[Rfam]
RNA sequence: GCAGACUCACUCUGUACUGAACUGCAGUCUUCAGUUCAGGUGCUUUUUCUGUCUGCAAGAGUGAUAGUUCACAGGAGCAGUAAUUGCCUUCUUUCUUGUAGAAGGCUGUUACAGUUGUUGUUGAGACAUUGCU
Numbered sequence: 001g002c003a004g005a006c007u008c009a010c011u012c013u014g015u016a017c018u019g020a021a022c023u024g025c026a027g028u029c030u031u032c033a034g035u036u037c038a039g040g041u042g043c044u045u046u047u048u049c050u051g052u053c054u055g056c057a058a059g060a061g062u063g064a065u066a067g068u069u070c071a072c073a074g075g076a077g078c079a080g081u082a083a084u085u086g087c088c089u090u091c092u093u094u095c096u097u098g099u100a101g102a103a104g105g106c107u108g109u110u111a112c113a114g115u116u117g118u119u120g121u122u123g124a125g126a127c128a129u130u131g132c133u
Stems, first nucleotide, its partner, number of pairs: 001056006014043004018038003022034003069124003072120003077115002080112003086106004
Shown here is a 133-nucleotide RNA sequence from Heliornis fulica, a member of the family "Small nucleolar RNA SNORA77". The base pairs follow the family's consensus structure, which was predicted with RNAalifold. NCBI's taxonomy places the organism under Eukaryota, Bilateria, Craniata, Gruiformes, Heliornis. By type it is an H/ACA-box small nucleolar RNA. On this family, see Schattner et al., RNA 2006: "A computational screen for mammalian pseudouridylation guide H/ACA RNAs". Gene Ontology terms of the family: nucleolus and RNA processing. ACA63 (SNORA77) is a member of the H/ACA class of snoRNAs that guide the sites of modification of uridines to pseudouridines. This snoRNA was identified by computational screening and its expression in mouse experimentally verified by Northern blot and primer extension analysis. ACA63 is proposed to guide the pseudouridylation of 18S rRNA U814. The match comes from Rfam's covariance-model search (60 bits).